Rfam assigns this 133-nucleotide RNA sequence from Salvia splendens to the family "mir-393 microRNA precursor family". The source organism's lineage runs through Eukaryota, Streptophytina, Salviinae, Salvia and core Calosphace. Rfam links the family to the GO terms RISC complex and miRNA-mediated post-transcriptional gene silencing.
[Rfam]
RNA sequence: AAAGGAGGCGUCCAAAGGGAUCGCAUUGAUCCCAACUCUAUUUCCCUAUUCCUUUUCUUCACUACCAUCUUCUUUAUAUAUUUAAUUGGAAUUCAUACAUUUUGGAUCAUGCUAUCUCUUUGGAUUCAUCCUU
Numbered sequence: 001a002a003a004g005g006a007g008g009c010g011u012c013c014a015a016a017g018g019g020a021u022c023g024c025a026u027u028g029a030u031c032c033c034a035a036c037u038c039u040a041u042u043u044c045c046c047u048a049u050u051c052c053u054u055u056u057c058u059u060c061a062c063u064a065c066c067a068u069c070u071u072c073u074u075u076a077u078a079u080a081u082u083u084a085a086u087u088g089g090a091a092u093u094c095a096u097a098c099a100u101u102u103u104g105g106a107u108c109a110u111g112c113u114a115u116c117u118c119u120u121u122g123g124a125u126u127c128a129u130c131c132u133u
Stems, first nucleotide, its partner, number of pairs: 002133005008127001010125012023112004028108005